RNA sequence: GGAUGUGAGGGCGAUCUGGCUGCGACAUCUGUCACCCCAUUGAUCGCCAGGGUUGAUUCGGCUGAUCUGGCUGGCUAGGCGGGUGUCCCCUUCCUCCCUCAACGAUCCAUGUGCGUCCCUCCCGAAGCUGCGCGCUCGGUCGAAGAGGACGACCACCCCCGAUAGAGGAGGACCGUUCCUCGGUCAAGGGUAUACGAGUAGCUGCGCUCCCCUGCUAGAACCUCCAAACAAGCUCUCAAGAGAACAACCAUCAACAAAUGAAAAAUACACAAUGCUGAAAGCAACUCAAGACUUCAAACAAAAAGCAGUUAGUAAGACUUGGUUGUUUUG
Number, nucleotide and partner (000 for none) at each position: 001g108002g107003a106004u000005g000006u101007g100008a099009g098010g097011g096012c000013g093014a092015u000016c000017u000018g090019g089020c000021u000022g000023c000024g087025a086026c085027a084028u083029c082030u081031g080032u079033c078034a000035c074036c073037c070038c069039a068040u000041u000042g067043a066044u065045c064046g062047c061048c060049a000050g000051g000052g000053u000054u000055g000056a000057u000058u000059c000060g048061g047062c046063u000064g045065a044066u043067c042068u039069g038070g037071c000072u000073g036074g035075c000076u000077a000078g033079g032080c031081g030082g029083g028084u027085g026086u025087c024088c000089c019090c018091u000092u014093c013094c000095u000096c011097c010098c009099u008100c007101a006102a000103c000104g000105a000106u003107c002108c001109a000110u000111g000112u000113g000114c000115g000116u171117c170118c168119c167120u166121c165122c139123c138124g137125a136126a000127g135128c134129u000130g000131c000132g000133c000134g128135c127136u125137c124138g123139g122140u162141c161142g160143a000144a000145g000146a000147g158148g157149a000150c000151g000152a000153c000154c000155a000156c000157c148158c147159c000160c142161g141162a140163u000164a000165g121166a120167g119168g118169a000170g117171g116172a000173c000174c000175g000176u000177u000178c000179c000180u000181c000182g000183g000184u000185c000186a000187a000188g000189g000190g000191u000192a000193u000194a000195c000196g000197a000198g000199u000200a000201g282202c281203u280204g000205c000206g000207c277208u000209c000210c274211c000212c000213u271214g270215c000216u000217a000218g000219a000220a000221c000222c000223u264224c000225c000226a000227a000228a000229c000230a000231a000232g000233c000234u000235c000236u000237c000238a000239a000240g000241a000242g000243a000244a000245c000246a000247a000248c000249c000250a000251u000252c000253a000254a000255c000256a000257a000258a000259u000260g000261a000262a000263a000264a223265a000266u000267a000268c000269a000270c214271a213272a000273u000274g210275c000276u000277g207278a000279a000280a203281g202282c201283a000284a000285c000286u000287c000288a000289a000290g000291a000292c000293u000294u000295c000296a000297a000298a000299c000300a000301a000302a000303a000304a000305g000306c000307a000308g000309u000310u330311a329312g326313u325314a324315a323316g000317a000318c000319u000320u000321g000322g000323u315324u314325g313326u312327u000328u000329u311330g310

Shown here is a 330-nucleotide RNA sequence from Octodon degus, a member of the family "7SK RNA". About the family: 7SK was discovered as an abundant small nuclear RNA in the mid-70s but a possible function has only recently been suggested. The base pairs follow the family's consensus structure, which is taken from published work. By type it is a non-coding RNA gene.